[Rfam]
RNA sequence: UCCUAUGAUGGCAUGUAAUCUUUGAGACCUGAUUGUUUUCACUGGAUGACUACUACAAGCAUAAUUAGUAAGGAC
Numbered sequence: 001u002c003c004u005a006u007g008a009u010g011g012c013a014u015g016u017a018a019u020c021u022u023u024g025a026g027a028c029c030u031g032a033u034u035g036u037u038u039u040c041a042c043u044g045g046a047u048g049a050c051u052a053c054u055a056c057a058a059g060c061a062u063a064a065u066u067a068g069u070a071a072g073g074a075c
Stems, first nucleotide, its partner, number of pairs: 001074003034041002
RNA: Small nucleolar RNA R66
Organism: Populus tomentosa